[Rfam]
The record is a 60-nucleotide RNA sequence from Shewanella woodyi, which matches "COG3860 RNA" in Rfam.
The family's consensus secondary structure is taken from published work.
RNA sequence: AGGUCGGCAGACCACCUAGGCAUCGCCUCUGCUCUUUUUAGUGCAGCGCUAAACCUGCUG
Numbered sequence: 001a002g003g004u005c006g007g008c009a010g011a012c013c014a015c016c017u018a019g020g021c022a023u024c025g026c027c028u029c030u031g032c033u034c035u036u037u038u039u040a041g042u043g044c045a046g047c048g049c050u051a052a053a054c055c056u057g058c059u060g
Stems, first nucleotide, its partner, number of pairs: 001017004029046004
Notes: It is one of the family's seed sequences.